[Rfam]
RNA sequence: UGAUGUCAAUGAUGUUUUAUUACCUACAUUGUUUGAUUCGAUGUGAUAACAUUUUUAGUUCACUGAGACAUCG
Numbered sequence: 001u002g003a004u005g006u007c008a009a010u011g012a013u014g015u016u017u018u019a020u021u022a023c024c025u026a027c028a029u030u031g032u033u034u035g036a037u038u039c040g041a042u043g044u045g046a047u048a049a050c051a052u053u054u055u056u057a058g059u060u061c062a063c064u065g066a067g068a069c070a071u072c073g
Stems, first nucleotide, its partner, number of pairs: 001073002004070004
Rfam assigns this 73-nucleotide RNA sequence from Leptobrachium leishanense to the family "Small nucleolar RNA SNORD34". The family's RNA type in Rfam is C/D-box small nucleolar RNA. Its family is annotated with nucleolus and RNA processing in the Gene Ontology. The literature on the family includes a 2002 paper in Mol Cell Biol by Galardi et al., "Purified box C/D snoRNPs are able to reproduce site-specific 2'-O-methylation of target RNA in vitro". snoRNA U34 is found in intron 5 of the ribosomal protein L13a gene in humans. The organism belongs to Leptobrachium, within Eukaryota.